[Rfam]
RNA sequence: UAGCAUAAUCUAGGCGAGGGAACUCGGCAAAUUAGCCCUGUAACUUCGGGAGAAGGGGUGCCAGUUGCGUGAGUAACUGGUCGCAGUGACAAGAGAACUCCGACUGUUUAAUCAAAACAUAGAUCGCUGCUAGUUCGAAAGGAUGUGUAUAGCGGUUGAAGCCUGCCCAGUGUCGGUAUCUUAAAUCCUGUUUCAACGGGACGAAGGACCGAUAAACGGCGGGGGUAACUAUGACCCUCUUAAGGUAGCGUAAUACCUUGUCGCUUAAUUGGCGACUUGCAUGAAGGCCCAACGAGAGUUCUACUGUCCCCGCCUAGACGCUAGUGAAAUCAAUCUGUCUGGUGCACAAUCCAGACC
Numbered sequence: 001u002a003g004c005a006u007a008a009u010c011u012a013g014g015c016g017a018g019g020g021a022a023c024u025c026g027g028c029a030a031a032u033u034a035g036c037c038c039u040g041u042a043a044c045u046u047c048g049g050g051a052g053a054a055g056g057g058g059u060g061c062c063a064g065u066u067g068c069g070u071g072a073g074u075a076a077c078u079g080g081u082c083g084c085a086g087u088g089a090c091a092a093g094a095g096a097a098c099u100c101c102g103a104c105u106g107u108u109u110a111a112u113c114a115a116a117a118c119a120u121a122g123a124u125c126g127c128u129g130c131u132a133g134u135u136c137g138a139a140a141g142g143a144u145g146u147g148u149a150u151a152g153c154g155g156u157u158g159a160a161g162c163c164u165g166c167c168c169a170g171u172g173u174c175g176g177u178a179u180c181u182u183a184a185a186u187c188c189u190g191u192u193u194c195a196a197c198g199g200g201a202c203g204a205a206g207g208a209c210c211g212a213u214a215a216a217c218g219g220c221g222g223g224g225g226u227a228a229c230u231a232u233g234a235c236c237c238u239c240u241u242a243a244g245g246u247a248g249c250g251u252a253a254u255a256c257c258u259u260g261u262c263g264c265u266u267a268a269u270u271g272g273c274g275a276c277u278u279g280c281a282u283g284a285a286g287g288c289c290c291a292a293c294g295a296g297a298g299u300u301c302u303a304c305u306g307u308c309c310c311c312g313c314c315u316a317g318a319c320g321c322u323a324g325u326g327a328a329a330u331c332a333a334u335c336u337g338u339c340u341g342g343u344g345c346a347c348a349a350u351c352c353a354g355a356c357c
Stems, first nucleotide, its partner, number of pairs: 001323004009318008018309003035059005044049001060081009082086001094302007101294002105119003122157008130147001133144004161288003165220003170217002172213005179208003186201005221239006240244001260276006338355005